Shown here is a 230-nucleotide RNA from Megasphaera cerevisiae, a member of the family "T-box leader".
By type it is a cis-regulatory leader.
It scores 104 bits against the family's covariance model.
Rfam's curators write: Uncharged tRNA acts as the effector for transcription antitermination of genes in the T-box leader family.
Taxonomically the source falls in Megasphaera cerevisiae (Bacteria, Bacillota, Negativicutes, Veillonellales).
RNA sequence: AAAAAUGUGAUGAACAAAACAAGUACACGUACGAAAGCCAUACAGAGAGUGUAAGUCACCGGCUGAAAGCUUACACCGCCGCUGGGGUACGAUGGAAUGCCUUUGGGAGCAGGAUAAUCGAAAAGAGAGUAGAUUAUUUCGGAAAACCACCGUUAUCGGUUUUGAGUGAUAAUAUCAGUCAGUUUUAUGAUAUUGUAAUCAGAGUGGAACCACGGACCACCGUCUCUGUA
Number, nucleotide and partner (000 for none) at each position: 001a000002a000003a000004a000005a000006u000007g110008u109009g000010a000011u000012g000013a000014a000015c105016a104017a103018a102019a000020c000021a000022a000023g000024u000025a000026c094027a093028c091029g090030u089031a088032c000033g000034a000035a000036a000037g000038c000039c081040a000041u000042a000043c000044a000045g000046a000047g000048a000049g076050u075051g074052u073053a072054a071055g070056u069057c000058a000059c000060c000061g000062g000063c000064u000065g000066a000067a000068a000069g056070c055071u054072u053073a052074c051075a050076c049077c000078g000079c000080c000081g039082c000083u000084g000085g000086g000087g000088u031089a030090c029091g028092a000093u027094g026095g000096a000097a000098u000099g000100c000101c000102u018103u017104u016105g015106g000107g000108a000109g008110c007111a000112g000113g138114a137115u136116a135117a134118u133119c132120g000121a000122a000123a000124a000125g000126a000127g000128a000129g000130u000131a000132g119133a118134u117135u116136a115137u114138u113139u000140c152141g151142g150143a000144a000145a000146a000147c000148c000149a000150c142151c141152g140153u000154u000155a000156u000157c000158g000159g000160u000161u000162u000163u000164g000165a000166g000167u000168g000169a196170u195171a194172a193173u192174a191175u190176c189177a188178g000179u000180c000181a000182g000183u000184u000185u000186u000187a000188u177189g176190a175191u174192a173193u172194u171195g170196u169197a000198a000199u000200c000201a227202g226203a225204g224205u000206g000207g000208a000209a000210c000211c000212a223213c222214g221215g220216a000217c000218c000219a000220c215221c214222g213223u212224c204225u203226c202227u201228g000229u000230a000